Source information:
FMN riboswitch aptamer (RFN element): a 154-nucleotide sequence from Xylanimonas protaetiae. A search with the family's covariance model found it, with a score of 76 bits.
RNA sequence: AGCAUGCUCCGGGGGCGGUGAAACUCCGCGCCGGCGGUGAUGGCACGCAACCCGUGCACGAGCCCGCGAACCGCACGACCCCGCCAGGGGUCGCGCGGCCGACCUGGUGAGACCCCAGGGCCGACGGUGAAAGUCCGGAUGAGAGGCGCAUGUG
Dot-bracket structure: ..(((((.((.....(((.......))).[[((((((........................[[))))...((((....................))))....(((((.......)))))]])).(((.....]]))).......)).)))))..